[Rfam]
RNA sequence: UUCUUGUGAGGAUUUAAGACCUGAAAUUGAUAGGAAGUGCCGUAUGACACUUAUAAGCAGUUGUAUU
Numbered sequence: 001u002u003c004u005u006g007u008g009a010g011g012a013u014u015u016a017a018g019a020c021c022u023g024a025a026a027u028u029g030a031u032a033g034g035a036a037g038u039g040c041c042g043u044a045u046g047a048c049a050c051u052u053a054u055a056a057g058c059a060g061u062u063g064u065a066u067u
Stems, first nucleotide, its partner, number of pairs: 015060001035052005
RNA: Small nucleolar RNA U49
Organism: Rhynchospora breviuscula